Record summary
Shown here is a 587-nucleotide part of an RNA from Spiroplasma eriocheiris, a member of the family "Bacterial large subunit ribosomal RNA".

[Rfam]
Nucleotides: 587
Stems, first nucleotide, its partner, number of pairs: 001583008010575003014570002022404004027400002029396005035201004042193007051154016068137001078136005085119003094113008159180002162178006204216004217239006240385001242342002248300006254280002257275006281290002305328004311322003330339003353379007361372002413454003417451001418448007428438002465540001466538004470532001471529005478503002481498006505519005546564004550559003
Number, partner (000 for none) and nucleotide at each position: 001583c002582c003581c004580g005579c006578a007577a008576c009000u010575a011574g012573a013000c014570g015569g016000a017000a018000a019000g020000a021000c022404c023403c024402c025401a026000u027400g028399g029396a030395g031394c032393u033392u034000u035201a036200c037199u038198a039000u040000a041000g042193c043192u044191u045190g046189a047188u048187a049000u050000u051154g052153g053152g054151u055150u056149u057148u058147g059146g060145u061144a062143u063142a064141g065140c066139a067000u068137g069000u070000a071000u072000a073000g074000g075000a076000u077000a078136g079135g080134u081133g082132g083000g084000a085119g086118a087117c088000u089000u090000u091000g092000a093000a094113g095112u096111a097110g098109c099108g100107a101106c102000g103000c104000u105000a106101g107100u108099u109098g110097u111096u112095a113094u114000g115000g116000a117087g118086u119085c120000a121000u122000c123000c124000u125000u126000g127000g128000a129000a130000u131000a132082c133081c134080a135079c136078c137068c138000u139066u140065g141064u142063u143062a144061u145060a146059u147058u148057g149056a150055a151054a152053u153052c154051c155000u156000a157000a158000c159180c160179u161000a162178g163177a164176u165175c166174u167173g168000u169000a170000a171000g172000c173167c174166a175165g176164a177163u178162c179160a180159g181000a182000g183000a184000c185000a186000g187048u188047g189046u190045c191044a192043g193042g194000u195000g196000g197000g198038u199037a200036g201035u202000u203000u204216g205215a206214c207213u208000g209000g210000g211000g212000c213207g214206g215205u216204c217239g218238c219237c220236u221235c222234c223000u224000a225000a226000a227000g228000u229000g230000u231000a232000a233000c234222g235221g236220a237219g238218g239217c240385g241000c242342c243341c244000a245000a246000u247000g248300g249299u250298a251297c252296c253295c254280u255279c256000a257275g258274u259273a260272u261271g262270g263000u264000c265000g266000g267000a268000a269000a270262u271261c272260a273259u274258a275257c276000a277000u278000a279255g280254a281290g282289c283000g284000c285000a286000a287000a288000g289282g290281u291000a292000g293000a294000a295253g296252g297251g298250u299249g300248c301000u302000u303000g304000a305328c306327u307326g308325u309000g310000a311322g312321a313320c314000u315000u316000a317000c318000a319000a320313g321312u322311c323000g324000a325308a326307c327306a328305g329000g330339a331338g332337c333000g334000a335000a336000a337332g338331c339330u340000g341243g342242g343000c344000u345000u346000a347000g348000u349000g350000a351000u352000c353379c354378g355377g356376c357375g358374g359373u360000c361372c362371c363000g364000u365000g366000u367000g368000g369000a370000a371362g372361g373359g374358c375357c376356g377355u378354c379353g380000c381000u382000c383000a384000a385240c386000g387000g388000a389000u390000a391000a392033a393032a394031g395030u396029u397000a398000c399028c400027c401025u402024g403023g404022g405000g406000a407000u408000a409000a410000c411000a412000g413454g414453c415452u416000g417451a418448u419447c420446u421445c422444c423443c424442c425000c426000a427000a428438g429437a430000g431000u432000u433000c434000a435000c436000a437429u438428c439000g440000a441000c442424g443423g444422g445421g446420a447419g448418g449000u450000u451417u452415g453414g454413c455000a456000c457000c458000u459000c460000g461000a462000u463000g464000u465540c466538g467537g468536c469535u470532c471529a472528u473527c474526g475525c476000a477000u478503c479502c480000u481498g482497g483496a484495g485494c486493u487000g488000a489000a490000g491000u492000c493486g494485g495484u496483u497482c498481c499000a500000a501000g502479g503478g504000u505519u506518g507517g508516g509515c510000u511000g512000u513000u514000c515509g516508c517507c518506c519505a520000u521000u522000a523000a524000a525475g526474c527473g528472g529471u530000a531000c532470g533000c534000g535469a536468g537467c538466u539000g540465g541000g542000u543000u544000c545000a546564g547563a548562a549561c550559g551558u552557c553000g554000u555000g556000a557552g558551a559550c560000a561549g562548u563547u564546u565000g566000g567000u568000c569015c570014c571000u572000a573012u574011c575010u576008g577007u578006u579005g580004u581003g582002g583001g584000c585000g586000u587000a

Rfam links the family to the GO terms ribosome and structural constituent of ribosome. It scores 2922 bits against the family's covariance model. Rfam 15.1 lists 51,934 matches to the family in 10,816 species. The organism belongs to Spiroplasma, within Bacteria.